[Rfam]
RNA sequence: CUAUCAAAAGUUACUUUUUGUGGGGUGGAAGUUUUUAAAAUAACCUUUACCUACGUGGGCUGUUUUGGAAAAUAAAGAAAAGACCACACUCAGCAGAGGGCUAUACCCCUUAGUAUAGUUCACCACUAUUUUGCAGCUUAUAUU
Numbered sequence: 001c002u003a004u005c006a007a008a009a010g011u012u013a014c015u016u017u018u019u020g021u022g023g024g025g026u027g028g029a030a031g032u033u034u035u036u037a038a039a040a041u042a043a044c045c046u047u048u049a050c051c052u053a054c055g056u057g058g059g060c061u062g063u064u065u066u067g068g069a070a071a072a073u074a075a076a077g078a079a080a081a082g083a084c085c086a087c088a089c090u091c092a093g094c095a096g097a098g099g100g101c102u103a104u105a106c107c108c109c110u111u112a113g114u115a116u117a118g119u120u121c122a123c124c125a126c127u128a129u130u131u132u133g134c135a136g137c138u139u140a141u142a143u144u
Stems, first nucleotide, its partner, number of pairs: 004067001006065003012062002015059003023054001027050001029048001031044003081139002084136001087133002096123001098121009

The family of this 144-nucleotide RNA sequence is "Small nucleolar RNA SNORA4". Pairs were carried over by alignment from the consensus structure, which was predicted with PFOLD. Its family is annotated with RNA processing and nucleolus in the Gene Ontology. Rfam describes the family as follows. ACA4 is a member of the H/ACA class of snoRNA that guide the sites of modification of uridines to pseudouridines.